[Rfam]
RNA sequence: AGGCUCGAUUUCCUGGGAUGUGGGCUCAGCCCACCCCACUUCCCCUCAACAGAGCCUAGAGAAAAGGGGCCAGGCCUCUUCCCUCAUGGGAGGGGUGUUUGAGAAGGAGCCUCACCCAGGCUAGUCUGGCCUCACAUUU
Numbered sequence: 001a002g003g004c005u006c007g008a009u010u011u012c013c014u015g016g017g018a019u020g021u022g023g024g025c026u027c028a029g030c031c032c033a034c035c036c037c038a039c040u041u042c043c044c045c046u047c048a049a050c051a052g053a054g055c056c057u058a059g060a061g062a063a064a065a066g067g068g069g070c071c072a073g074g075c076c077u078c079u080u081c082c083c084u085c086a087u088g089g090g091a092g093g094g095g096u097g098u099u100u101g102a103g104a105a106g107g108a109g110c111c112u113c114a115c116c117c118a119g120g121c122u123a124g125u126c127u128g129g130c131c132u133c134a135c136a137u138u139u
Stems, first nucleotide, its partner, number of pairs: 002056005015044004020039005066133005072127003078120003088112003
Rfam assigns this 139-nucleotide sequence from Peromyscus maniculatus to the family "Small Cajal body specific RNA 21". Rfam classes the family as a small Cajal body RNA. Rfam describes the family as follows. scaRNAs are a specific class of small nuclear RNAs which localise to the Cajal bodies and guide the modification of RNA polymerase II transcribed spliceosomal RNAs U1, U2, U4, U5 and U12. ACA68 (SCARNA21) is a member of the H/ACA class of snoRNAs that guide the sites of modification of uridines to pseudouridines. This snoRNA was identified by computational screening and its expression in mouse experimentally verified by Northern blot and primer extension analysis. ACA68 is proposed to guide the pseudouridylation of residue U19 in U12 snRNA. The source organism's lineage runs through Eukaryota, Opisthokonta, Mammalia, Cricetidae and Peromyscus maniculatus. Its family is annotated with nucleolus, RNA processing and Cajal body in the Gene Ontology. It scores 130 bits against the family's covariance model. A reference for the family is Darzacq et al. (2002), "Cajal body-specific small nuclear RNAs: a novel class of 2'-O-methylation and pseudouridylation guide RNAs", EMBO J.